[Rfam]
RNA sequence: GUUACAGAAGGACCCUAGUAGGGUCGAAGC
Numbered sequence: 001g002u003u004a005c006a007g008a009a010g011g012a013c014c015c016u017a018g019u020a021g022g023g024u025c026g027a028a029g030c
Stems, first nucleotide, its partner, number of pairs: 011025005
The record is a 30-nucleotide sequence from Halocatena salina, which matches "CRISPR RNA direct repeat element" in Rfam.
A search with the family's covariance model found it, with a score of 39 bits.